[Rfam]
RNA sequence: GAAUCAUUAGAAGCGCCUGGACUAAAUCCGAUCGGAAGGGAUUUAGUUGACGAGGAGGAGGAGUAUCGAGAGUAAUCGGCGGAUGCCUCCCGGCUGCCACACAGUCGUUAAUCUUUUCUUAAAUCACUUAGGUGACUAAGUGGACAAAGGAAAAAGAUAGGUGGAGA
Numbered sequence: 001g002a003a004u005c006a007u008u009a010g011a012a013g014c015g016c017c018u019g020g021a022c023u024a025a026a027u028c029c030g031a032u033c034g035g036a037a038g039g040g041a042u043u044u045a046g047u048u049g050a051c052g053a054g055g056a057g058g059a060g061g062a063g064u065a066u067c068g069a070g071a072g073u074a075a076u077c078g079g080c081g082g083a084u085g086c087c088u089c090c091c092g093g094c095u096g097c098c099a100c101a102c103a104g105u106c107g108u109u110a111a112u113c114u115u116u117u118c119u120u121a122a123a124u125c126a127c128u129u130a131g132g133u134g135a136c137u138a139a140g141u142g143g144a145c146a147a148a149g150g151a152a153a154a155a156g157a158u159a160g161g162u163g164g165a166g167a
Stems, first nucleotide, its partner, number of pairs: 020048008029039001057090005066079004091107006111158007125142007
RNA: glmS glucosamine-6-phosphate activated ribozyme aptamer